[Rfam]
A member of the RNA family "mir-187 microRNA precursor family" from Microcaecilia unicolor, 81 nucleotides long. The family's consensus secondary structure was predicted with RNAalifold. For this family Rfam cites "Vertebrate microRNA genes" (Lim et al., Science, 2003). It scores 91 bits against the family's covariance model. Rfam links the family to the GO terms miRNA-mediated post-transcriptional gene silencing and RISC complex.
RNA sequence: AGUGUGAUACCUCCGGCUACAACACAGGACAUGAGAACUUUCUUGGACGCUCGUGUCUUGUGUUGCAGCCAGAGGGGCACA
Numbered sequence: 001a002g003u004g005u006g007a008u009a010c011c012u013c014c015g016g017c018u019a020c021a022a023c024a025c026a027g028g029a030c031a032u033g034a035g036a037a038c039u040u041u042c043u044u045g046g047a048c049g050c051u052c053g054u055g056u057c058u059u060g061u062g063u064u065g066c067a068g069c070c071a072g073a074g075g076g077g078c079a080c081a
Stems, first nucleotide, its partner, number of pairs: 011074002015070004020065011032053004